[Rfam]
RNA sequence: CUUGAUCAGACAAAUGGACUUCAGAUCAUCCUCGGGGAGGUGCGCCCAAUCACGCCGCUUCGCCGAGGCU
Number, nucleotide and partner (000 for none) at each position: 001c000002u000003u028004g027005a026006u025007c024008a000009g021010a020011c000012a000013a000014a000015u000016g000017g000018a000019c000020u010021u009022c000023a000024g007025a006026u005027c004028a003029u000030c000031c000032u000033c000034g000035g000036g051037g050038a000039g000040g000041u048042g047043c000044g000045c000046c000047c042048a041049a000050u037051c036052a000053c000054g000055c000056c000057g000058c000059u000060u000061c000062g000063c000064c000065g000066a000067g000068g000069c000070u000

This 70-nucleotide RNA from Mycobacterium tuberculosis belongs to the Rfam family "Actinobacteria sRNA Ms_AS-8".
The pairing is the family consensus, mapped onto this sequence.
On this family, see Li et al., RNA 2013: "Identification of small RNAs in Mycobacterium smegmatis using heterologous Hfq".